[Rfam]
RNA sequence: GAGAAAUUCACUGAAGCUGCUGGACGCUGCACAAGAGAUACAAUUUAACUCUUGUGCGUGUGACAGCGGCUAUUGUGGAUAUUCUGACUCGACUG
Numbered sequence: 001g002a003g004a005a006a007u008u009c010a011c012u013g014a015a016g017c018u019g020c021u022g023g024a025c026g027c028u029g030c031a032c033a034a035g036a037g038a039u040a041c042a043a044u045u046u047a048a049c050u051c052u053u054g055u056g057c058g059u060g061u062g063a064c065a066g067c068g069g070c071u072a073u074u075g076u077g078g079a080u081a082u083u084c085u086g087a088c089u090c091g092a093c094u095g
Stems, first nucleotide, its partner, number of pairs: 006080006015071008025060002028058006035051002
The record is a 95-nucleotide RNA sequence from Phyllotreta striolata, which matches "mir-210 microRNA precursor family" in Rfam. The base pairs follow the family's consensus structure, which was predicted with WAR. NCBI's taxonomy places the organism under Eukaryota, Panarthropoda, Dicondylia, Alticini, Phyllotreta. The literature on the family includes a 2005 paper in Proc Natl Acad Sci U S A by Cai et al., "Kaposi's sarcoma-associated herpesvirus expresses an array of viral microRNAs in latently infected cells". Rfam links the family to the GO terms RISC complex and miRNA-mediated post-transcriptional gene silencing.